[Rfam]
RNA: Actino-pnp RNA
Organism: Mycobacterium sp. 852013-51886_SCH5428379
RNA sequence: GGCGGUCUUCGGUAGUGGUUGCCGGUAGCUGAUGAGAACACUCCGGCAGCUUCGAUCGACGGCCGUA
Numbered sequence: 001g002g003c004g005g006u007c008u009u010c011g012g013u014a015g016u017g018g019u020u021g022c023c024g025g026u027a028g029c030u031g032a033u034g035a036g037a038a039c040a041c042u043c044c045g046g047c048a049g050c051u052u053c054g055a056u057c058g059a060c061g062g063c064c065g066u067a
Stems, first nucleotide, its partner, number of pairs: 002066006009059005017051009027042002030040002